MIR5387 microRNA precursor family: a 94-nucleotide sequence from Sorghum bicolor. The family's consensus secondary structure was predicted with RNAalifold.
[Rfam]
RNA sequence: UCUUGUUAAAAACCGGUGCUAAAGGGUUCCUGCCCCGACAGCACAUGUCAGUAGCCGUUGGGCAGGACCCUUUAGCACCGGUUUGUAACACGAA
Numbered sequence: 001u002c003u004u005g006u007u008a009a010a011a012a013c014c015g016g017u018g019c020u021a022a023a024g025g026g027u028u029c030c031u032g033c034c035c036c037g038a039c040a041g042c043a044c045a046u047g048u049c050a051g052u053a054g055c056c057g058u059u060g061g062g063c064a065g066g067a068c069c070c071u072u073u074a075g076c077a078c079c080g081g082u083u084u085g086u087a088a089c090a091c092g093a094a
Base pairs, nucleotide, nucleotide: 004090005089006088007087008086010084011083012082013081014080015079016078017077018076019075020074021073022072023071024070025069026068027067029066030065034062035061036060038058039057046050
Rfam links the family to the GO terms RISC complex and miRNA-mediated post-transcriptional gene silencing. The match comes from Rfam's covariance-model search (74 bits). The organism belongs to Sorghum, within Eukaryota.